[Rfam]
RNA sequence: UGAGUCGGCUAGGCAGUCGCGGCGCAUCACUCUCUGGCCAUCGCUGGCGUUGGCAGGGGAGCUGCGUCGAGGAAAGUCCGGGCUCCACAGGGCAGAGUGCCAGGUAACGCCUGGGGGGCGUAAGUCCACGGAAAGUGCAGCAGAGAGUAGACCGCCGAUGGCCAUUGCGGCACAGGUAAGGGUGAAAGGGUGCGGUAAGAGCGCACCGCGCGGCUGGUAACAGUUCGCGGCACGGCAAACCCCACUCGGAGCAAGAUCAAAUAGGUCUCCUAUGGCGCGGCCCGCGCUGGAGACGGGUAGAUUGCUUGAGGCAGUUGGCGACAGCUGACCCAGAUGAAUGACUGUCCACGACAGAACCCGGCUUAUCGGCCGACUCACUCU
Numbered sequence: 001u002g003a004g005u006c007g008g009c010u011a012g013g014c015a016g017u018c019g020c021g022g023c024g025c026a027u028c029a030c031u032c033u034c035u036g037g038c039c040a041u042c043g044c045u046g047g048c049g050u051u052g053g054c055a056g057g058g059g060a061g062c063u064g065c066g067u068c069g070a071g072g073a074a075a076g077u078c079c080g081g082g083c084u085c086c087a088c089a090g091g092g093c094a095g096a097g098u099g100c101c102a103g104g105u106a107a108c109g110c111c112u113g114g115g116g117g118g119c120g121u122a123a124g125u126c127c128a129c130g131g132a133a134a135g136u137g138c139a140g141c142a143g144a145g146a147g148u149a150g151a152c153c154g155c156c157g158a159u160g161g162c163c164a165u166u167g168c169g170g171c172a173c174a175g176g177u178a179a180g181g182g183u184g185a186a187a188g189g190g191u192g193c194g195g196u197a198a199g200a201g202c203g204c205a206c207c208g209c210g211c212g213g214c215u216g217g218u219a220a221c222a223g224u225u226c227g228c229g230g231c232a233c234g235g236c237a238a239a240c241c242c243c244a245c246u247c248g249g250a251g252c253a254a255g256a257u258c259a260a261a262u263a264g265g266u267c268u269c270c271u272a273u274g275g276c277g278c279g280g281c282c283c284g285c286g287c288u289g290g291a292g293a294c295g296g297g298u299a300g301a302u303u304g305c306u307u308g309a310g311g312c313a314g315u316u317g318g319c320g321a322c323a324g325c326u327g328a329c330c331c332a333g334a335u336g337a338a339u340g341a342c343u344g345u346c347c348a349c350g351a352c353a354g355a356a357c358c359c360g361g362c363u364u365a366u367c368g369g370c371c372g373a374c375u376c377a378c379u380c381u
Base pairs, nucleotide, nucleotide: 001377002376003375004374005373006372007371008370009369010368011366012346013345014344015343016342017341018340020069021068022067023066024065025064026063028061074364075363076362078361079360080359081358082357083251084250085249086248090283091282092281093280095247096246097245098244099243100114101113102112103111104110115129116127117126118125119124130242131241135240136239137236138235152181153180154177155176156175159172160171162169189207190206191205192204193203194202208231209229210228211227212226213225214223215222216221255303256302257301258300265294266293267292268291269290270289274288275287276286277285278284310329312327313326314325315324316323317322
RNA: Bacterial RNase P class A
Organism: Gammaproteobacteria bacterium LSUCC0057